Description
Shown here is an 86-nucleotide RNA from Oryctolagus cuniculus, a member of the family "Stem loopII regulatory element in POLB". A reference for the family is Sarnowska et al. (2007), "Hairpin structure within the 3'UTR of DNA polymerase beta mRNA acts as a post-transcriptional regulatory element and interacts with Hax-1", Nucleic Acids Res. It is annotated as a cis-regulatory element.
RNA sequence: ACAGCGCCAGGCGUCUUAAUUUAUUCCGUAACCUUUGCUAUGUAAGGGUCUUUGGUGUUUUUAAGUGACUGUUUCUUCUUCAUGCC
Number, nucleotide and partner (000 for none) at each position: 001a000002c000003a000004g000005c000006g000007c000008c000009a079010g078011g077012c000013g000014u000015c000016u064017u063018a062019a061020u000021u000022u000023a000024u000025u055026c054027c000028g000029u000030a000031a049032c048033c047034u046035u045036u044037g043038c042039u000040a000041u000042g038043u037044a036045a035046g034047g033048g032049u031050c000051u000052u000053u000054g026055g025056u000057g000058u000059u000060u000061u019062u018063a017064a016065g000066u000067g000068a000069c000070u000071g000072u000073u000074u000075c000076u000077u011078c010079u009080u000081c000082a000083u000084g000085c000086c000